[Rfam]
Notes
The family of this 89-nucleotide RNA is "DUF3800-VII RNA". Pairs were carried over by alignment from the consensus structure, which is taken from published work. The sequence is in the family's curated seed alignment.
RNA sequence: UACAGGUAUGCGCGGGAAACUUCUCAGGUCGUCCGUAAGGAUGGCAGCCCCAAGUGGGUGGGAUCCUGAGACCCGGGACCUGUAAAUUA
Number, nucleotide and partner (000 for none) at each position: 001u084002a083003c082004a081005g080006g079007u078008a000009u000010g000011c076012g000013c075014g074015g073016g072017a000018a000019a000020c000021u000022u071023c070024u069025c068026a067027g066028g045029u044030c043031g042032u041033c040034c039035g000036u000037a000038a000039g034040g033041a032042u031043g030044g029045c028046a000047g000048c058049c057050c056051c000052a000053a000054g000055u000056g050057g049058g048059u000060g000061g000062g000063a000064u000065c000066c027067u026068g025069a024070g023071a022072c016073c015074c014075g013076g011077g000078a007079c006080c005081u004082g003083u002084a001085a000086a000087u000088u000089a000